The family of this 115-nucleotide sequence from a Cyclobacteriaceae bacterium is "SAM riboswitch aptamer (S box leader)". The family's consensus secondary structure is taken from published work.
Nucleotides: 115
Stems, first nucleotide, its partner, number of pairs: 001115008013043005021032003026077004044069004049065002052060001073107001078104006
Number, partner (000 for none) and nucleotide at each position: 001115u002114g003113c004112u005111u006110a007109u008108c009000c010000a011000g012000a013043a014042a015041g016040a017039c018000c019000g020000a021032g022031g023030g024000a025000c026077a027076g028075g029074g030023c031022c032021c033000u034000a035000a036000g037000a038000c039017g040016u041015c042014u043013u044069a045068g046067c047066a048000a049065c050064c051000u052060u053000g054000c055000u056000g057000a058000u059000a060052a061000c062000c063000u064050g065049g066047u067046g068045c069044u070000a071000a072000u073107u074029c075028c076027c077026u078104u079103c080102u081101g082100u083099a084000u085000g086000c087000a088000a089000u090000u091000c092000a093000a094000u095000c096000g097000g098000a099083u100082g101081c102080a103079g104078a105000g106000a107073a108008g109007a110006u111005a112004a113003g114002c115001a